[Rfam]
RNA: Lysine riboswitch aptamer
Organism: Affinibrenneria salicis
RNA sequence: CAAGCCAGAAGAGGAGCGUUGCCCAGGUAAGAUAUCAGAGGAGCCGUUAUCCAGUGAUGAUAUCCGAGGGGGAGCGGCGCCGAGAUGAAGUGAACAACGGUAUUCACUGCAUCGACCACAGGGGCUGAAUCCCCUGGGUUGUCACCAGGGUACACGCGCUGCGCGGGUGUACAGCAAGGUGGAGCGCUUCUGGGUGU
Numbered sequence: 001c002a003a004g005c006c007a008g009a010a011g012a013g014g015a016g017c018g019u020u021g022c023c024c025a026g027g028u029a030a031g032a033u034a035u036c037a038g039a040g041g042a043g044c045c046g047u048u049a050u051c052c053a054g055u056g057a058u059g060a061u062a063u064c065c066g067a068g069g070g071g072g073a074g075c076g077g078c079g080c081c082g083a084g085a086u087g088a089a090g091u092g093a094a095c096a097a098c099g100g101u102a103u104u105c106a107c108u109g110c111a112u113c114g115a116c117c118a119c120a121g122g123g124g125c126u127g128a129a130u131c132c133c134c135u136g137g138g139u140u141g142u143c144a145c146c147a148g149g150g151u152a153c154a155c156g157c158g159c160u161g162c163g164c165g166g167g168u169g170u171a172c173a174g175c176a177a178g179g180u181g182g183a184g185c186g187c188u189u190c191u192g193g194g195u196g197u
Stems, first nucleotide, its partner, number of pairs: 006192006016080007024072001031064007084113004089108006114140004119136006142182005